[Rfam]
RNA sequence: GGCUGGUCCAGAGGUCCAACUGAGUUAUCUCAAUUGACUGUUCAGUUAGUUAUAGAUUAAACUCCUUGUUCUAGUCUUUCUCCACUUGUUACUACUGCACUUGACUAGUCUUAA
Numbered sequence: 001g002g003c004u005g006g007u008c009c010a011g012a013g014g015u016c017c018a019a020c021u022g023a024g025u026u027a028u029c030u031c032a033a034u035u036g037a038c039u040g041u042u043c044a045g046u047u048a049g050u051u052a053u054a055g056a057u058u059a060a061a062c063u064c065c066u067u068g069u070u071c072u073a074g075u076c077u078u079u080c081u082c083c084a085c086u087u088g089u090u091a092c093u094a095c096u097g098c099a100c101u102u103g104a105c106u107a108g109u110c111u112u113a114a
Base pairs, nucleotide, nucleotide: 001110002109003108004107005106006105007104008103010102011101014098015097019093021091022090023089045075046074048072049071
The family of this 114-nucleotide sequence from Nomascus leucogenys is "Y RNA". The base pairs follow the family's consensus structure, which is taken from published work. Y RNAs are components of the Ro ribonucleoprotein particle (Ro RNP), in association with Ro60 and La proteins. The Y RNAs and Ro60 and La proteins are well conserved, but the function of the Ro RNP is not known.